[Rfam]
This 145-nucleotide RNA from Streptomyces luteolifulvus belongs to the Rfam family "c-di-AMP riboswitch aptamer (ydaO/yuaA leader)".
From the family's description: This family represents a conserved RNA structure found upstream of the ydaO and yuaA genes in Bacillus subtilis and related genes in other bacteria.

RNA sequence: CACGACGGGUCGCCGGAACGGUCAUCCCCGCAGGGGAGGUGCCGGGCCGAGCAGCCCUUGGGGUGAAGCCGCAGCCAUGCGGCCGGGCAACUUCGCCAGCCCGAAUCCGACAGGUCAUCCUUCACAGGCGGCUGACGAAGGGUUG
Numbered sequence: 001c002a003c004g005a006c007g008g009g010u011c012g013c014c015g016g017a018a019c020g021g022u023c024a025u026c027c028c029c030g031c032a033g034g035g036g037a038g039g040u041g042c043c044g045g046g047c048c049g050a051g052c053a054g055c056c057c058u059u060g061g062g063g064u065g066a067a068g069c070c071g072c073a074g075c076c077a078u079g080c081g082g083c084c085g086g087g088c089a090a091c092u093u094c095g096c097c098a099g100c101c102c103g104a105a106u107c108c109g110a111c112a113g114g115u116c117a118u119c120c121u122u123c124a125c126a127g128g129c130g131g132c133u134g135a136c137g138a139a140g141g142g143u144u145g
Stems, first nucleotide, its partner, number of pairs: 011130004020031001033125001035123004043060004061108003069082004085102004